[Rfam]
RNA sequence: UGACGGGGACCCGCACAAGCGGUGGAGCAUGUGGUUUAAUUCGAAGCUACGCGUAGAACCUUACCAGCUCUUGACAUUUCAGGUCGAAGCGGCCGUAAAUGGGCGUUUUCAACCAACAUUCUUGAAAGAAUGGACUUGAAACAGGUGCUGCAUGGCUGUCGUCAGCUCGUGUCGUGAGAUGUAUGGUUAAGUCCUGUAACGAGCGCAACCCUUGCCCUUAGUUGCUUAAAGCGAUGCUAGCUCUCUAAGGGGACCGCUAAUGACAAAUUAGAGGAAGGAAAGGAUGACGUCAAGUCUUCAUGGCCUUUAUGGGCUGGGCUACACACGUGCUACAAUGGUGGCCACAGAGAGUCGCAGAGUCGCGAGGCCGAGCUAAUCUUUAAAAGCCAUCUCAGUCCAGAUUGCACUCUGCAACUCGAGUGCAUGAAGCAGGAAUCGCUAGUAAUCGCGGAUCAGCAUGCCGCGGUGAAUACGUUCUCGGGUCUUGUACACACCGCCCGUCACACCAUGGGAGUUGGCUUUGCUCUAAGCCGUCGCUUUGGCGCGGUCACAGUGGAGUUAACGACUGGGGUGAAGUCGUAACAAGG
Dot-bracket structure: (((((.(((((((.((..((((((.((((((((((....(.((........)).)........(((((((......(((((((.....(((.(((....))).))).((((...................)))))))))))..((.((((..((((((.((...(((((((((....)))....((......))....)))))).....((((.(((((((...((...(((...)))))....)))))))..((.(((((.....))))).)).....))))....)).).)))...))))))))....)))))))...)).)))))))).)...((((((......(((..((...(((....)))...))....))).....))))))......(....(((((((........)))))))....).....))))).....(((((((.........)))))))......))...)))))))))).))..(.(..((...((((.(((..((((((((((((....((((..((....)).))))...))))))))))))..))).))))....))...)..).
Rfam assigns this 587-nucleotide part of an RNA from Candidatus Hodgkinia cicadicola to the family "Bacterial small subunit ribosomal RNA". Gene Ontology terms of the family: ribosome and structural constituent of ribosome. The literature on the family includes a 2001 paper in Science by Yusupov et al., "Crystal structure of the ribosome at 5.5 A resolution". NCBI's taxonomy places the organism under Bacteria, Pseudomonadota, Hyphomicrobiales, Candidatus Hodgkinia, Candidatus Hodgkinia cicadicola. The sequence is in the family's curated seed alignment.